[Rfam]
RNA sequence: AUCUGAAAAAGGCAAACUUAUCCGAAAGGGAAGGACGCAAAGCCAUGAGCCUAACCACUGGAAUUCCAGUGAACGGUUGUCAGGCUGCCAGG
Numbered sequence: 001a002u003c004u005g006a007a008a009a010a011g012g013c014a015a016a017c018u019u020a021u022c023c024g025a026a027a028g029g030g031a032a033g034g035a036c037g038c039a040a041a042g043c044c045a046u047g048a049g050c051c052u053a054a055c056c057a058c059u060g061g062a063a064u065u066c067c068a069g070u071g072a073a074c075g076g077u078u079g080u081c082a083g084g085c086u087g088c089c090a091g092g
Base pairs, nucleotide, nucleotide: 012038013037017033018032019031021030022029023028041086042085043084044083046082047081048080049077050076051075056071057070058069059068060067061066
RNA: c-di-GMP-I riboswitch aptamer